TPP riboswitch aptamer (THI element): a 110-nucleotide RNA from Clostridium luticellarii. NCBI's taxonomy places the organism under Bacteria, Bacillati, Clostridia, Eubacteriales, Clostridium. For this family Rfam cites "Thermodynamic analysis of ligand binding and ligand binding-induced tertiary structure formation by the thiamine pyrophosphate riboswitch" (Kulshina et al., RNA, 2010).

RNA sequence: AUAAUGUUACAGGGGAGCCCAUACUGAUGGGCUGAGAGUAAGAUAAUAUCUUUUACCCUUAUAACCUGAUUUGGAUAAUGCCAACGUAGGGAAAUUUUGCACUGUUUUAU
Numbered sequence: 001a002u003a004a005u006g007u008u009a010c011a012g013g014g015g016a017g018c019c020c021a022u023a024c025u026g027a028u029g030g031g032c033u034g035a036g037a038g039u040a041a042g043a044u045a046a047u048a049u050c051u052u053u054u055a056c057c058c059u060u061a062u063a064a065c066c067u068g069a070u071u072u073g074g075a076u077a078a079u080g081c082c083a084a085c086g087u088a089g090g091g092a093a094a095u096u097u098u099g100c101a102c103u104g105u106u107u108u109a110u
Base pairs, nucleotide, nucleotide: 006098009095011059012058013057014056016053017032018031019030020029021028040052041051042050043049065090066089067088068087071084072083073082074081